The record is a 57-nucleotide RNA sequence from Kluyvera cryocrescens, which matches "ClpQY promoter" in Rfam. The source organism's lineage runs through Bacteria, Pseudomonadati, Pseudomonadota, Gammaproteobacteria and Kluyvera.

[Rfam]
RNA sequence: CCCCGUACGCGGUACGGGGCCUCUCUAUUCGUAUUUGCAACAAAGGGUCUGCUCGUG
Numbered sequence: 001c002c003c004c005g006u007a008c009g010c011g012g013u014a015c016g017g018g019g020c021c022u023c024u025c026u027a028u029u030c031g032u033a034u035u036u037g038c039a040a041c042a043a044a045g046g047g048u049c050u051g052c053u054c055g056u057g
Base pairs, nucleotide, nucleotide: 001019002018003017004016005015006014007013008012